Rfam assigns this 174-nucleotide sequence from Thauera terpenica to the family "Manganese Mn2+ riboswitch aptamer (yybP-ykoY)". Rfam links the family to the GO term manganese ion binding. This RNA was originally discovered in E. coli during a large scale screen and was named SraF. The family was later found to exist upstream of related families of protein genes in many bacteria, including the the yybP and ykoK genes in B. subtilis. The specific functions of these proteins are unknown, but this structured RNA element may be involved in their genetic regulation as a riboswitch. A reference for the family is Argaman et al. (2001), "Novel small RNA-encoding genes in the intergenic regions of Escherichia coli", Curr Biol.
[Rfam]
RNA sequence: CCGCUCGUUCAUUGGGGAGUAGCCUCUCUUCAACCCGAAGAGGCUUGCGUCAACAUACUUGGUCACUCGACCAUGGCGUAAGCGGUUUCUGCUUGGCAAGACCUUUGAUCACACCACCUUCCGACUGGCCGGAGAGGUGGCGUGGUCAUUUGUCGAAUUCCGGCCGAGGAAACC
Numbered sequence: 001c002c003g004c005u006c007g008u009u010c011a012u013u014g015g016g017g018a019g020u021a022g023c024c025u026c027u028c029u030u031c032a033a034c035c036c037g038a039a040g041a042g043g044c045u046u047g048c049g050u051c052a053a054c055a056u057a058c059u060u061g062g063u064c065a066c067u068c069g070a071c072c073a074u075g076g077c078g079u080a081a082g083c084g085g086u087u088u089c090u091g092c093u094u095g096g097c098a099a100g101a102c103c104u105u106u107g108a109u110c111a112c113a114c115c116a117c118c119u120u121c122c123g124a125c126u127g128g129c130c131g132g133a134g135a136g137g138u139g140g141c142g143u144g145g146u147c148a149u150u151u152g153u154c155g156a157a158u159u160c161c162g163g164c165c166g167a168g169g170a171a172a173c174c
Base pairs, nucleotide, nucleotide: 027041028040029039043083044082045081046080047079048078049077050076051075052074060073061072062071063070064069084174085173086172087171088170089169090168